[Rfam]
Description:
Shown here is a 172-nucleotide RNA sequence from Nocardia seriolae, a member of the family "M-box riboswitch aptamer (ykoK leader)". A search with the family's covariance model found it, with a score of 138 bits. Pairs were carried over by alignment from the consensus structure. The organism belongs to Nocardia, within Bacteria.
RNA sequence: AUCGCACCUCGAUAGGCGAGGCUCCUGUACGAACACAGGCCACUGAUCUGACGACGUCGAGAGACGCCCAAGGUUAGGACAGAUUUCCCCGGAUUAAGGGGUCAUCCAAAGUGGCUUCCCGCUCAGCGGAAUACGUCGCACAGUGCCGAAGCUCUGACGAGAGGGGUGUUCG
Numbered sequence: 001a002u003c004g005c006a007c008c009u010c011g012a013u014a015g016g017c018g019a020g021g022c023u024c025c026u027g028u029a030c031g032a033a034c035a036c037a038g039g040c041c042a043c044u045g046a047u048c049u050g051a052c053g054a055c056g057u058c059g060a061g062a063g064a065c066g067c068c069c070a071a072g073g074u075u076a077g078g079a080c081a082g083a084u085u086u087c088c089c090c091g092g093a094u095u096a097a098g099g100g101g102u103c104a105u106c107c108a109a110a111g112u113g114g115c116u117u118c119c120c121g122c123u124c125a126g127c128g129g130a131a132u133a134c135g136u137c138g139c140a141c142a143g144u145g146c147c148g149a150a151g152c153u154c155u156g157a158c159g160a161g162a163g164g165g166g167u168g169u170u171c172g
Stems, first nucleotide, its partner, number of pairs: 005168006011158001013097001015153003020147003025143004030138003039115005045075005055066004082106003088100003117130003